Shown here is a 77-nucleotide sequence from Sinimarinibacterium flocculans, a member of the family "SAH (S-adenosyl-L-homocysteine) riboswitch aptamer". The source organism's lineage runs through Bacteria, Pseudomonadati, Pseudomonadota, Nevskiales and Sinimarinibacterium. The literature on the family includes a 2008 paper in Mol Cell by Wang et al., "Riboswitches that sense S-adenosylhomocysteine and activate genes involved in coenzyme recycling". The base pairs follow the family's consensus structure, which is taken from published work. The match comes from Rfam's covariance-model search (60 bits).
RNA sequence: GCCGCCGAGGGGCGUUGCGACCUGCGUACACCGCAGGCCAGGCUCGGCGGCCCCGUCUGCAACCGCGCCCACAUCUG
Numbered sequence: 001g002c003c004g005c006c007g008a009g010g011g012g013c014g015u016u017g018c019g020a021c022c023u024g025c026g027u028a029c030a031c032c033g034c035a036g037g038c039c040a041g042g043c044u045c046g047g048c049g050g051c052c053c054c055g056u057c058u059g060c061a062a063c064c065g066c067g068c069c070c071a072c073a074u075c076u077g
Stems, first nucleotide, its partner, number of pairs: 002050007021037006